[Rfam]
RNA sequence: UGGUGUCCAUCCGCUGUAACAGCAACUCCAUGUGGGAGGGGUCCGUGGUCCCCGUGGGGCUGCUGUUAUUCUGGACGGGCAC
Dot-bracket structure: .........(((...((((((((..((((((..((...............)).))))))..))))))))...))).......
RNA: mir-194 microRNA precursor family
Organism: Alligator mississippiensis